[Rfam]
RNA sequence: GAAGAGUUUGAUCCUGGCUCAGAAGGAACGCUAGCUAUAUGCUUAACACAUGCAAGUCGAACGUUGUUUUCGGGGAGCUGGGCUGAAGGAAAAGAGGCUCCUAGCGUGAAGGUUGCUUGUCUCGCCCAGGAGGUGGGAACAGUUGAAAACAAAGUGGCGAACGGGUGCGUAAUGCGUGGGAAUCUGCCGAACAGUUCGGGCCAAAUCCUGAAGAAAGCUAAAAAGCGCUGUUUGAUGAGCCUGCGUAGUAUUAGGUAGUUGGUCAGGUAAAGGCUGACCAAGCCAAUGAUGCUUAGCUGGUCUUUUCGGAUGAUCAGCCACACUGGGACUGAGACACGGCCCGGACUCCCACGGGGGGCAGCAGUGGGGAAUCUUGGACAAUGGGCGAAAGCCCGAUCCAGCAAUAUCGCGUGAGUGAAGAAGGGCAAUGCCGCUUGUAAAGCUCUUUCGUCGAGUGCGCGAUCAUGACAGGACUCGAGGAAGAAGCCCCGGCUAACUCCGUGCCAGCAGCCGCGGUAAGACGGGGGGGGCAAGUGUUCUUCGGAAUGACUG
Numbered sequence: 001g002a003a004g005a006g007u008u009u010g011a012u013c014c015u016g017g018c019u020c021a022g023a024a025g026g027a028a029c030g031c032u033a034g035c036u037a038u039a040u041g042c043u044u045a046a047c048a049c050a051u052g053c054a055a056g057u058c059g060a061a062c063g064u065u066g067u068u069u070u071c072g073g074g075g076a077g078c079u080g081g082g083c084u085g086a087a088g089g090a091a092a093a094g095a096g097g098c099u100c101c102u103a104g105c106g107u108g109a110a111g112g113u114u115g116c117u118u119g120u121c122u123c124g125c126c127c128a129g130g131a132g133g134u135g136g137g138a139a140c141a142g143u144u145g146a147a148a149a150c151a152a153a154g155u156g157g158c159g160a161a162c163g164g165g166u167g168c169g170u171a172a173u174g175c176g177u178g179g180g181a182a183u184c185u186g187c188c189g190a191a192c193a194g195u196u197c198g199g200g201c202c203a204a205a206u207c208c209u210g211a212a213g214a215a216a217g218c219u220a221a222a223a224a225g226c227g228c229u230g231u232u233u234g235a236u237g238a239g240c241c242u243g244c245g246u247a248g249u250a251u252u253a254g255g256u257a258g259u260u261g262g263u264c265a266g267g268u269a270a271a272g273g274c275u276g277a278c279c280a281a282g283c284c285a286a287u288g289a290u291g292c293u294u295a296g297c298u299g300g301u302c303u304u305u306u307c308g309g310a311u312g313a314u315c316a317g318c319c320a321c322a323c324u325g326g327g328a329c330u331g332a333g334a335c336a337c338g339g340c341c342c343g344g345a346c347u348c349c350c351a352c353g354g355g356g357g358g359c360a361g362c363a364g365u366g367g368g369g370a371a372u373c374u375u376g377g378a379c380a381a382u383g384g385g386c387g388a389a390a391g392c393c394c395g396a397u398c399c400a401g402c403a404a405u406a407u408c409g410c411g412u413g414a415g416u417g418a419a420g421a422a423g424g425g426c427a428a429u430g431c432c433g434c435u436u437g438u439a440a441a442g443c444u445c446u447u448u449c450g451u452c453g454a455g456u457g458c459g460c461g462a463u464c465a466u467g468a469c470a471g472g473a474c475u476c477g478a479g480g481a482a483g484a485a486g487c488c489c490c491g492g493c494u495a496a497c498u499c500c501g502u503g504c505c506a507g508c509a510g511c512c513g514c515g516g517u518a519a520g521a522c523g524g525g526g527g528g529g530g531c532a533a534g535u536g537u538u539c540u541u542c543g544g545a546a547u548g549a550c551u552g
Base pairs, nucleotide, nucleotide: 004020005019006018007017008016022542023541024540026539027538028537029536030535031534032533034410035409037407038406039405040404041402042368047366048365049364051363052362053361056158057157058156061155062154064152065151066150067149068148069147070146071145072144073143165321166320167319174246175245176244177243178242179241180240183238184237188234189233190232191231192230193229194228196211197210198209199208247293248292249291254284255283256282259281260280261279262278263277264276265275266274296318297317298316299315300311301310302309303308323344324343325342326341327340346357347356348355349354374400376399377398378397382395383394384393385392386391413445414444415443449483451478452477453476454475455474456473486531487530488529489528490526498525499524500523501522507514508513
Shown here is a 552-nucleotide part of an RNA from Cajanus cajan, a member of the family "Archaeal small subunit ribosomal RNA". It scores 785 bits against the family's covariance model. Its Rfam clan is "SSU clan". Rfam links the family to the GO terms structural constituent of ribosome and ribosome.